Rfam assigns this 389-nucleotide RNA sequence from Halalkalibacter krulwichiae to the family "Bacterial RNase P class B". Ribonuclease P (RNase P) is a ubiquitous endoribonuclease, found in archaea, bacteria and eukarya as well as chloroplasts and mitochondria. Its best characterised activity is the generation of mature 5'-ends of tRNAs by cleaving the 5'-leader elements of precursor-tRNAs. Cellular RNase Ps are ribonucleoproteins. RNA from bacterial RNase Ps retains its catalytic activity in the absence of the protein subunit, i.e. it is a ribozyme. Isolated eukaryotic and archaeal RNase P RNA has not been shown to retain its catalytic function, but is still essential for the catalytic activity of the holoenzyme. Although the archaeal and eukaryotic holoenzyme s have a much greater protein content than the bacterial ones, the RNA cores from all the three lineages are homologous -- helices corresponding to P1, P2, P3, P4, and P10/11 are common to all cellular RNase P RNAs. Yet, there is considerable sequence variation, particularly among the eukaryotic RNAs.
[Rfam]
RNA sequence: GUAUUCAGGUAACCGCUGCACGAUCUUCGUGUAGAGGAAAGUCCAUGCUCGCACGAACUGAGAUGUUCGUAGUGAUCGUGCCUAGCCAAUUCAUAAGCUAGGGUAGUCUGGUUGAGACUGGGCUAACGGCAAGGGAAGCACCUAAGUCUUUAGAUAUGGUGUGAUACCUUUGAAAGUGCCACAGUGACGAAGUCUAAUCGGAAACGAUUAGAGUGGAACGAGGUAAACCCCACGAGCGAGAAACCCAAAAUAUGGUAGGGGAAUCUUCUUAUAAACUGGAAAUGAACAGUAUAGAAGGACAAGGAAUACCUUGUAGAUAGAUGGUUACCACCGGAGUACGAGGUUCAUCACCGUUUGCAGUACAAAGGAACAGAACAUGGCUUAUCGAA
Number, nucleotide and partner (000 for none) at each position: 001g000002u000003a000004u389005u388006c387007a385008g329009g328010u327011a326012a325013c324014c323015g000016c034017u033018g032019c031020a030021c029022g000023a000024u000025c000026u000027u000028c000029g021030u020031g019032u018033a017034g016035a000036g000037g000038a000039a383040a382041g381042u000043c380044c379045a378046u377047g376048c240049u239050c238051g237052c236053a070054c069055g068056a067057a066058c065059u000060g000061a000062g000063a000064u000065g058066u057067u056068c055069g054070u053071a000072g000073u000074g000075a000076u235077c234078g233079u232080g231081c102082c101083u100084a099085g098086c097087c000088a000089a000090u000091u000092c000093a000094u000095a000096a000097g086098c085099u084100a083101g082102g081103g127104u125105a124106g123107u122108c121109u120110g119111g118112u117113u000114g000115a000116g000117a112118c111119u110120g109121g108122g107123c106124u105125a104126a000127c103128g230129g229130c000131a170132a169133g168134g167135g000136a000137a000138g000139c161140a160141c159142c158143u000144a000145a000146g155147u154148c153149u000150u000151u000152a000153g148154a147155u146156a000157u000158g142159g141160u140161g139162u000163g000164a000165u000166a000167c134168c133169u132170u131171u000172g000173a000174a000175a000176g228177u227178g224179c223180c222181a000182c000183a000184g000185u000186g000187a000188c000189g000190a000191a000192g000193u212194c211195u210196a209197a208198u207199c206200g205201g000202a000203a000204a000205c200206g199207a198208u197209u196210a195211g194212a193213g000214u000215g000216g000217a000218a000219c000220g000221a000222g180223g179224u178225a000226a000227a177228c176229c129230c128231c080232a079233c078234g077235a076236g052237c051238g050239a049240g048241a000242a000243a000244c260245c259246c258247a000248a000249a000250a000251u000252a000253u000254g000255g000256u000257a000258g246259g245260g244261g000262a000263a000264u298265c297266u296267u295268c294269u293270u000271a000272u000273a000274a000275a000276c000277u000278g000279g000280a000281a000282a000283u000284g000285a000286a000287c000288a000289g000290u000291a000292u000293a269294g268295a267296a266297g265298g264299a314300c313301a312302a311303g310304g309305a000306a000307u000308a000309c304310c303311u302312u301313g300314u299315a000316g000317a000318u000319a000320g000321a000322u000323g014324g013325u012326u011327a010328c009329c008330a000331c368332c367333g000334g000335a000336g363337u362338a361339c360340g000341a000342g000343g000344u000345u000346c000347a000348u000349c000350a000351c000352c000353g000354u000355u000356u000357g000358c000359a000360g339361u338362a337363c336364a000365a000366a000367g332368g331369a000370a000371c000372a000373g000374a000375a000376c047377a046378u045379g044380g043381c041382u040383u039384a000385u007386c000387g006388a005389a004

The literature on the family includes a 1998 paper in Annu Rev Biochem by Frank and Pace, "Ribonuclease P: unity and diversity in a tRNA processing ribozyme".
The source organism's lineage runs through Bacteria, Bacillati, Caryophanales, Bacillaceae and Halalkalibacter.